[Rfam]
RNA sequence: AUGGGGAAGAGGAAGUUAGAGAAGUUCUAAAGACAAUGGGAUUGGGAACAUAUGAGAAAGCACGAGCUCUUUAUUUGCCCGUGGCAUUGGAGAUGAAAAUUCGCUUGCUUUUUUCUCGAUGCCUCCCAUUCCUAUGAUUCUUAGGUUCUCCUUCCUCUUCCUUUUUCUC
Numbered sequence: 001a002u003g004g005g006g007a008a009g010a011g012g013a014a015g016u017u018a019g020a021g022a023a024g025u026u027c028u029a030a031a032g033a034c035a036a037u038g039g040g041a042u043u044g045g046g047a048a049c050a051u052a053u054g055a056g057a058a059a060g061c062a063c064g065a066g067c068u069c070u071u072u073a074u075u076u077g078c079c080c081g082u083g084g085c086a087u088u089g090g091a092g093a094u095g096a097a098a099a100u101u102c103g104c105u106u107g108c109u110u111u112u113u114u115c116u117c118g119a120u121g122c123c124u125c126c127c128a129u130u131c132c133u134a135u136g137a138u139u140c141u142u143a144g145g146u147u148c149u150c151c152u153u154c155c156u157c158u159u160c161c162u163u164u165u166u167c168u169c
Stems, first nucleotide, its partner, number of pairs: 009160005015154001021150002026145005032139002037134005043128005049121003055116006

A member of the RNA family "MIR2118 microRNA precursor family" from Leersia perrieri, 169 nucleotides long.
The match comes from Rfam's covariance-model search (109 bits).
The family has 7 seed sequences and 2,377 matches in Rfam 15.1.
NCBI's taxonomy places the organism under Eukaryota, Tracheophyta, Euphyllophyta, Oryzeae, Leersia.
The base pairs follow the family's consensus structure, which was predicted with RNAalifold.
For this family Rfam cites "Characterization and expression profiles of miRNAs in rice seeds" (Xue et al., Nucleic Acids Res, 2009).